[Rfam]
A member of the RNA family "Purine riboswitch aptamer" from Asaccharospora irregularis, 100 nucleotides long. The family's consensus secondary structure is taken from published work. A search with the family's covariance model found it, with a score of 87 bits. Taxonomically the source falls in Asaccharospora irregularis (Bacteria, Bacillota, Clostridia, Peptostreptococcaceae).
RNA sequence: AAUAUGUAAAAAAACAUUUUUCGUAUAACCCUAAUGAUAUGGUUUAGGGGUCUCUACCAGGAGCCGUAAAUUCCUGAUUACGAAGAGAAUCUAUUUAUUU
Numbered sequence: 001a002a003u004a005u006g007u008a009a010a011a012a013a014a015c016a017u018u019u020u021u022c023g024u025a026u027a028a029c030c031c032u033a034a035u036g037a038u039a040u041g042g043u044u045u046a047g048g049g050g051u052c053u054c055u056a057c058c059a060g061g062a063g064c065c066g067u068a069a070a071u072u073c074c075u076g077a078u079u080a081c082g083a084a085g086a087g088a089a090u091c092u093a094u095u096u097a098u099u100u
Stems, first nucleotide, its partner, number of pairs: 018086008029049006058076006